Background
Rfam assigns this 364-nucleotide part of an RNA from Candidatus Micrarchaeum acidiphilum to the family "Archaeal large subunit ribosomal RNA".
RNA sequence: GUUAGUAUCAUCAAAUAUGGGUGAGAAUCCCAUACACCGUAAGCACACGGGUUUCUUCGCAACGCUCGUCAGCGGAGAGUUAGGCGAUCCUAAGCCGCAGGCCAAUCACCAUGCGGCAAAAGGGAAGCUGGUUAAUAUUCCAGCCCCUAACAGGUAGGCGUGGCAACACAAGGCAGAUUUCUGACGCUUGGGGAUAGGUCCGCAAGAAAGUGCAAAGGGCUGCAGAGUCUCGUUAUGAGGAGAAGCAGCUAAAUGAACUGUUGGACUGAUUUCUUGAGCCCGUGAAAAGGGAAUCUGCAACGAUCCUGUUAGACCGUACCUAGAACUAGUACAAGUGUUGCUGGCUUAAAAGGCCAAGGUGUGA
Numbered sequence: 001g002u003u004a005g006u007a008u009c010a011u012c013a014a015a016u017a018u019g020g021g022u023g024a025g026a027a028u029c030c031c032a033u034a035c036a037c038c039g040u041a042a043g044c045a046c047a048c049g050g051g052u053u054u055c056u057u058c059g060c061a062a063c064g065c066u067c068g069u070c071a072g073c074g075g076a077g078a079g080u081u082a083g084g085c086g087a088u089c090c091u092a093a094g095c096c097g098c099a100g101g102c103c104a105a106u107c108a109c110c111a112u113g114c115g116g117c118a119a120a121a122g123g124g125a126a127g128c129u130g131g132u133u134a135a136u137a138u139u140c141c142a143g144c145c146c147c148u149a150a151c152a153g154g155u156a157g158g159c160g161u162g163g164c165a166a167c168a169c170a171a172g173g174c175a176g177a178u179u180u181c182u183g184a185c186g187c188u189u190g191g192g193g194a195u196a197g198g199u200c201c202g203c204a205a206g207a208a209a210g211u212g213c214a215a216a217g218g219g220c221u222g223c224a225g226a227g228u229c230u231c232g233u234u235a236u237g238a239g240g241a242g243a244a245g246c247a248g249c250u251a252a253a254u255g256a257a258c259u260g261u262u263g264g265a266c267u268g269a270u271u272u273c274u275u276g277a278g279c280c281c282g283u284g285a286a287a288a289g290g291g292a293a294u295c296u297g298c299a300a301c302g303a304u305c306c307u308g309u310u311a312g313a314c315c316g317u318a319c320c321u322a323g324a325a326c327u328a329g330u331a332c333a334a335g336u337g338u339u340g341c342u343g344g345c346u347u348a349a350a351a352g353g354c355c356a357a358g359g360u361g362u363g364a
Base pairs, nucleotide, nucleotide: 016034017033018032019031020030021029035361036360037359038358045338046337049320050319054078055077056076057075058074059073064070085316086315089123090122094117095116096115097114098113099112100110101109127144128143129142130141131140147312148311149310150309151308152307153306154305180291181290182289186279187278188277189276190275191274192273193272194271197267198266199265200264201263210258211257213255219249220248221247222246223245229239230238231237326335327334342356343355344354345353
The base pairs follow the family's consensus structure, which is taken from published work.
The literature on the family includes a 2001 paper in Science by Yusupov et al., "Crystal structure of the ribosome at 5.5 A resolution".
Rfam links the family to the GO terms structural constituent of ribosome and ribosome.